RNA sequence: GCUGAGCUCAGUAAUGUGGGCUUGUAACCCAAAUGGGGGCGUUAAUGUGGUGGAAUGUUGGGCCGUCUCAGAUGGUUGGACUUGGUGGGCUAGUUUCUGGCCUGCCCUCUCCAAGCACAGAGUUGGAUCACGAGGUCUAGUCGAAAGGAUGGGCUUCUUGAUUCCUAAAGUGGGGUGGACUGCGUGAGGCUGGUUUCACAGAGCAACGAAUAGCUCCCGCUCCAUGCAGUGGAAGGAUAACUUGGCUAGUGCUUGCCAAGUCCAGUAACCCCUGAUGGGCUGCUCCAAUUAAACUGCCACUUUU
Numbered sequence: 001g002c003u004g005a006g007c008u009c010a011g012u013a014a015u016g017u018g019g020g021c022u023u024g025u026a027a028c029c030c031a032a033a034u035g036g037g038g039g040c041g042u043u044a045a046u047g048u049g050g051u052g053g054a055a056u057g058u059u060g061g062g063c064c065g066u067c068u069c070a071g072a073u074g075g076u077u078g079g080a081c082u083u084g085g086u087g088g089g090c091u092a093g094u095u096u097c098u099g100g101c102c103u104g105c106c107c108u109c110u111c112c113a114a115g116c117a118c119a120g121a122g123u124u125g126g127a128u129c130a131c132g133a134g135g136u137c138u139a140g141u142c143g144a145a146a147g148g149a150u151g152g153g154c155u156u157c158u159u160g161a162u163u164c165c166u167a168a169a170g171u172g173g174g175g176u177g178g179a180c181u182g183c184g185u186g187a188g189g190c191u192g193g194u195u196u197c198a199c200a201g202a203g204c205a206a207c208g209a210a211u212a213g214c215u216c217c218c219g220c221u222c223c224a225u226g227c228a229g230u231g232g233a234a235g236g237a238u239a240a241c242u243u244g245g246c247u248a249g250u251g252c253u254u255g256c257c258a259a260g261u262c263c264a265g266u267a268a269c270c271c272c273u274g275a276u277g278g279g280c281u282g283c284u285c286c287a288a289u290u291a292a293a294c295u296g297c298c299a300c301u302u303u304u
Stems, first nucleotide, its partner, number of pairs: 001040003004023007028037003044303002047300007056291002058288003061284003065280002068278003074272002078263008087254003091251002097249006104241001106236002110233004115227003120222004125164006132157008141148002165170001172217005181210001183208003190201003
Rfam assigns this 304-nucleotide RNA sequence from Capsicum baccatum to the family "Plant signal recognition particle RNA".
A reference for the family is Batey et al. (2001), "Structural and energetic analysis of RNA recognition by a universally conserved protein from the signal recognition particle", J Mol Biol.
By type it is a non-coding RNA gene.